[Rfam]
RNA sequence: AGUUUGUCGAUUAUGUUUCUUAUUAAAAAUGUCUGAACAUAUGAACUCCAUGGUGAUUUCAGGGCAUUACUGAGAGAAGCU
Numbered sequence: 001a002g003u004u005u006g007u008c009g010a011u012u013a014u015g016u017u018u019c020u021u022a023u024u025a026a027a028a029a030u031g032u033c034u035g036a037a038c039a040u041a042u043g044a045a046c047u048c049c050a051u052g053g054u055g056a057u058u059u060c061a062g063g064g065c066a067u068u069a070c071u072g073a074g075a076g077a078a079g080c081u
Stems, first nucleotide, its partner, number of pairs: 002080004007075002
RNA: Small nucleolar RNA SNORD72